[Rfam]
RNA sequence: UGGCGCCCAACGUGGGGGUCCAGCACGGGGGAUCCAGUGAAGGACGCCGUCGAGUGGCCGGCAGAAAGGAAAAGAAAAGGGGGAACAACGUGGGAACCUGCUACGUCUGCACCCCUCGGGUAAGUGAAUGGCGAUUAUAGGUCAAGCAUUGAGCCAAGAUAAGAUGUUCAUUGAAGGACUAAAAAAGGCUAUCAAGGCACGAGGACUAAAGGUGAAAAUUAAGCAUUUGUGUCAGUAUUUUGAUUAUAUUAAAGAAGUUUGUCCUU
Numbered sequence: 001u002g003g004c005g006c007c008c009a010a011c012g013u014g015g016g017g018g019u020c021c022a023g024c025a026c027g028g029g030g031g032a033u034c035c036a037g038u039g040a041a042g043g044a045c046g047c048c049g050u051c052g053a054g055u056g057g058c059c060g061g062c063a064g065a066a067a068g069g070a071a072a073a074g075a076a077a078a079g080g081g082g083g084a085a086c087a088a089c090g091u092g093g094g095a096a097c098c099u100g101c102u103a104c105g106u107c108u109g110c111a112c113c114c115c116u117c118g119g120g121u122a123a124g125u126g127a128a129u130g131g132c133g134a135u136u137a138u139a140g141g142u143c144a145a146g147c148a149u150u151g152a153g154c155c156a157a158g159a160u161a162a163g164a165u166g167u168u169c170a171u172u173g174a175a176g177g178a179c180u181a182a183a184a185a186a187g188g189c190u191a192u193c194a195a196g197g198c199a200c201g202a203g204g205a206c207u208a209a210a211g212g213u214g215a216a217a218a219u220u221a222a223g224c225a226u227u228u229g230u231g232u233c234a235g236u237a238u239u240u241u242g243a244u245u246a247u248a249u250u251a252a253a254g255a256a257g258u259u260u261g262u263c264c265u266u
Stems, first nucleotide, its partner, number of pairs: 006031003012026003036050001039047001079117003082113002086109002089105005125144003129141001151192001153189003200242005207235001210228005251266002254263002
The record is a 266-nucleotide sequence from Molossus molossus, which matches "Mason-Pfizer monkey virus packaging signal" in Rfam. The family's consensus secondary structure was predicted with PFOLD. The family's RNA type in Rfam is cis-regulatory element. NCBI's taxonomy places the organism under Eukaryota, Bilateria, Teleostomi, Eutheria, Molossus. This family represents a group of sequences that are related to the Mason-Pfizer monkey virus (MPMV) packaging signal. The packaging signal is located in the 5' UTR and is required for specific RNA encapsidation.